RNA sequence: UACCUCUCAAAGUGGUUGUGUUUAUGAAAAUAUGCGUCCAUAUCACAGCCAGCUUUGAUGAGUUGAG
Numbered sequence: 001u002a003c004c005u006c007u008c009a010a011a012g013u014g015g016u017u018g019u020g021u022u023u024a025u026g027a028a029a030a031u032a033u034g035c036g037u038c039c040a041u042a043u044c045a046c047a048g049c050c051a052g053c054u055u056u057g058a059u060g061a062g063u064u065g066a067g
Stems, first nucleotide, its partner, number of pairs: 005061002007058006013051008023042003
RNA: mir-2 microRNA precursor family